[Rfam]
RNA sequence: CCAGGUGCUGUAAACACCCUACACUCUCAGCUGGAAUUAAUGUUAGCUGGGAGGGGGUGUUUGCUGCACCUAC
Numbered sequence: 001c002c003a004g005g006u007g008c009u010g011u012a013a014a015c016a017c018c019c020u021a022c023a024c025u026c027u028c029a030g031c032u033g034g035a036a037u038u039a040a041u042g043u044u045a046g047c048u049g050g051g052a053g054g055g056g057g058u059g060u061u062u063g064c065u066g067c068a069c070c071u072a073c
Stems, first nucleotide, its partner, number of pairs: 003071004008066001010064010024053009
RNA: mir-30 microRNA precursor family
Organism: Eptatretus burgeri